[Rfam]
RNA sequence: UUAGAUUUUCUUUCUUUUCUUCUCGAAUUUUUCUCGAAUUUUUGUUGUUGAAGGUUGACGGAGAUGAUGUGAAGAUGAAGAGGAGGAGAAG
Numbered sequence: 001u002u003a004g005a006u007u008u009u010c011u012u013u014c015u016u017u018u019c020u021u022c023u024c025g026a027a028u029u030u031u032u033c034u035c036g037a038a039u040u041u042u043u044g045u046u047g048u049u050g051a052a053g054g055u056u057g058a059c060g061g062a063g064a065u066g067a068u069g070u071g072a073a074g075a076u077g078a079a080g081a082g083g084a085g086g087a088g089a090a091g
Stems, first nucleotide, its partner, number of pairs: 006084008015075005037056007